RNA sequence: UUGUUAUCAAGAAAGGUGGAGGGAAUAGACCCAAUGAAACCUUAGCAACCCUACGCUUGUAGAAGGUGCUGCAUUCUAAUCAACGGAUUUGUCAUUCUGAACUUGUUUCAGAAUCUAAUUCAUUGAUGAAGAUAACGU
Numbered sequence: 001u002u003g004u005u006a007u008c009a010a011g012a013a014a015g016g017u018g019g020a021g022g023g024a025a026u027a028g029a030c031c032c033a034a035u036g037a038a039a040c041c042u043u044a045g046c047a048a049c050c051c052u053a054c055g056c057u058u059g060u061a062g063a064a065g066g067u068g069c070u071g072c073a074u075u076c077u078a079a080u081c082a083a084c085g086g087a088u089u090u091g092u093c094a095u096u097c098u099g100a101a102c103u104u105g106u107u108u109c110a111g112a113a114u115c116u117a118a119u120u121c122a123u124u125g126a127u128g129a130a131g132a133u134a135a136c137g138u
Stems, first nucleotide, its partner, number of pairs: 002137007013043005021032003026078004044070004049066002051062004074130001079127005
SAM riboswitch aptamer (S box leader): a 138-nucleotide RNA sequence from Flavobacterium urocaniciphilum. Gene Ontology term of the family: regulation of gene expression. The source organism's lineage runs through Bacteria, Bacteroidota, Flavobacteriia, Flavobacteriaceae and Flavobacterium. The family's consensus secondary structure is taken from published work. The match comes from Rfam's covariance-model search (69 bits).